[Rfam]
RNA sequence: AACCCCCCGAUUCUGCACUCAACUUGGCGGCUGGGACAGAUAUCGAGGGGUCGUAAGCAGGCUGCUGGCCUGUGAAGGAUUAUAACGCAUGCCUAUCAGAAGACAACCCCUGUCCGCCAUAAGA
Number, nucleotide and partner (000 for none) at each position: 001a000002a051003c050004c049005c048006c047007c000008c045009g044010a043011u042012u040013c039014u038015g037016c000017a000018c034019u000020c033021a032022a000023c000024u000025u119026g118027g117028c000029g114030g113031c000032u021033g020034g018035g000036a000037c015038a014039g013040a012041u000042a011043u010044c009045g008046a000047g006048g005049g004050g003051u002052c000053g000054u000055a000056a000057g000058c000059a000060g000061g000062c000063u000064g000065c000066u000067g000068g000069c000070c000071u000072g000073u000074g000075a000076a000077g000078g000079a000080u000081u000082a000083u000084a000085a000086c000087g000088c000089a000090u000091g000092c000093c000094u000095a000096u000097c000098a000099g000100a000101a000102g000103a000104c000105a000106a000107c000108c000109c000110c000111u000112g000113u030114c029115c000116g000117c027118c026119a025120u000121a000122a000123g000124a000
The family of this 124-nucleotide RNA sequence from Lasius niger is "Pseudoknot of the regulatory region of the repBA gene". The organism belongs to Lasius, within Eukaryota. Rfam links the family to the GO term translation. The family's RNA type in Rfam is cis-regulatory element. The base pairs follow the family's consensus structure, which is taken from published work. The literature on the family includes a 1999 paper in J Bacteriol by Athanasopoulos et al., "Analysis of elements involved in pseudoknot-dependent expression and regulation of the repA gene of an IncL/M plasmid".